[Rfam]
RNA sequence: CGACCUCAGAUCAGACGUGGCGACCUGCUGAAUUUAAGCAUAUUAGUCAGCAGAGGAAAAGAAACUAACGAGGAUUCCCUCAGUAAUGGCUAGCAAAGAGGGAAAAGCCCAGCGCCGAAUCCCCGCCCCGCGGUGGGGGGCGGGACAUGUGGCGUACAGAAGCCCCCCUCCCUGGCAGCACUCUUGGGGGACCCAAGUCCUUGUGAUCAAGGCCACAACCCGCGGACGGUGUGAGGUCGGCAGUGGCCCCCCGGCGCUCCGGGCCCGGGGCUUCUUGGAAUUGGGUUGCUUCGGAAUGCAGUCCAAAGCGGGGAGUAAACUCCAUCUAAGGCUAAAUACUGGCAGGAGACCGAUAGCCAACAAGUACUGUAAGGGAAAGUUGAAAAGAACUUUGAAGAAAGAGUUCAAGAGGGCGUGAAACCGUUAAGAGGUAAA
Numbered sequence: 001c002g003a004c005c006u007c008a009g010a011u012c013a014g015a016c017g018u019g020g021c022g023a024c025c026u027g028c029u030g031a032a033u034u035u036a037a038g039c040a041u042a043u044u045a046g047u048c049a050g051c052a053g054a055g056g057a058a059a060a061g062a063a064a065c066u067a068a069c070g071a072g073g074a075u076u077c078c079c080u081c082a083g084u085a086a087u088g089g090c091u092a093g094c095a096a097a098g099a100g101g102g103a104a105a106a107g108c109c110c111a112g113c114g115c116c117g118a119a120u121c122c123c124c125g126c127c128c129c130g131c132g133g134u135g136g137g138g139g140g141c142g143g144g145a146c147a148u149g150u151g152g153c154g155u156a157c158a159g160a161a162g163c164c165c166c167c168c169u170c171c172c173u174g175g176c177a178g179c180a181c182u183c184u185u186g187g188g189g190g191a192c193c194c195a196a197g198u199c200c201u202u203g204u205g206a207u208c209a210a211g212g213c214c215a216c217a218a219c220c221c222g223c224g225g226a227c228g229g230u231g232u233g234a235g236g237u238c239g240g241c242a243g244u245g246g247c248c249c250c251c252c253g254g255c256g257c258u259c260c261g262g263g264c265c266c267g268g269g270g271c272u273u274c275u276u277g278g279a280a281u282u283g284g285g286u287u288g289c290u291u292c293g294g295a296a297u298g299c300a301g302u303c304c305a306a307a308g309c310g311g312g313g314a315g316u317a318a319a320c321u322c323c324a325u326c327u328a329a330g331g332c333u334a335a336a337u338a339c340u341g342g343c344a345g346g347a348g349a350c351c352g353a354u355a356g357c358c359a360a361c362a363a364g365u366a367c368u369g370u371a372a373g374g375g376a377a378a379g380u381u382g383a384a385a386a387g388a389a390c391u392u393u394g395a396a397g398a399a400a401g402a403g404u405u406c407a408a409g410a411g412g413g414c415g416u417g418a419a420a421c422c423g424u425u426a427a428g429a430g431g432u433a434a435a
Stems, first nucleotide, its partner, number of pairs: 024055001025053005035042002065072002076103005087093001106333004113154005119148001120145004126139003159274006166268002181253001187250004192245001197213001199212004221225001228238002283304007310327003367374002390401004
Shown here is a 435-nucleotide part of an RNA from Tychaedon coryphoeus, a member of the family "Eukaryotic large subunit ribosomal RNA". For this family Rfam cites "The comparative RNA web (CRW) site: an online database of comparative sequence and structure information for ribosomal, intron, and other RNAs" (Cannone et al., BMC Bioinformatics, 2002).